[Rfam]
RNA sequence: UCUGGAGGAGUGACAAGGCUGAGCCUGGAGAUUCAGACUCAGUGUCAGUGCCCUCCUAAAGGAAAGGAUGGAGAGAGCAGCCCCAGCUCCAGAGCAGCCCAGGGCUCACUGUGCCAUCCCACACUG
Numbered sequence: 001u002c003u004g005g006a007g008g009a010g011u012g013a014c015a016a017g018g019c020u021g022a023g024c025c026u027g028g029a030g031a032u033u034c035a036g037a038c039u040c041a042g043u044g045u046c047a048g049u050g051c052c053c054u055c056c057u058a059a060a061g062g063a064a065a066g067g068a069u070g071g072a073g074a075g076a077g078c079a080g081c082c083c084c085a086g087c088u089c090c091a092g093a094g095c096a097g098c099c100c101a102g103g104g105c106u107c108a109c110u111g112u113g114c115c116a117u118c119c120c121a122c123a124c125u126g
Stems, first nucleotide, its partner, number of pairs: 003058001004056005017043001019042001021040003025036002066119004076110002079106005090097001
Dot-bracket structure: ..((((((........(.(.(((.((........)).))).))........))))).).......((((......((.(((((......(......)....)))))..)).....)))).......

Shown here is a 126-nucleotide RNA from Serinus canaria, a member of the family "Small Cajal body specific RNA 4". The family is grouped with related families in Rfam's "SCARNA4 clan". By type it is a small Cajal body RNA. The literature on the family includes a 2002 paper in EMBO J by Darzacq et al., "Cajal body-specific small nuclear RNAs: a novel class of 2'-O-methylation and pseudouridylation guide RNAs". Taxonomically the source falls in Serinus (Eukaryota, Opisthokonta, Coelurosauria, Neognathae). The family's consensus secondary structure was predicted with RNAfold. Rfam links the family to the GO terms Cajal body, nucleolus and RNA processing. scaRNAs are a specific class of small nuclear RNAs which localise to the Cajal bodies and guide the modification of RNA polymerase II transcribed spliceosomal RNAs U1, U2, U4, U5 and U12. ACA26 belongs to the H/ACA box class of guide RNAs as it has the predicted hairpin-hinge-hairpin-tail structure, conserved H/ACA-box motifs and is found associated with GAR1.